RNA: Plastid-psbN 5UTR RNA
RNA sequence: UGCGACCCCCAUAAGUGGCGUAGUCCCCUAGUCCGGUGCUACUUUACCAUAUUCCGAAUUC
Numbered sequence: 001u002g003c004g005a006c007c008c009c010c011a012u013a014a015g016u017g018g019c020g021u022a023g024u025c026c027c028c029u030a031g032u033c034c035g036g037u038g039c040u041a042c043u044u045u046a047c048c049a050u051a052u053u054c055c056g057a058a059u060u061c
Base pairs, nucleotide, nucleotide: 017045018044020042021041022040023039024038026036027035
Dot-bracket structure: ................((.(((((.((.......)).))))).))................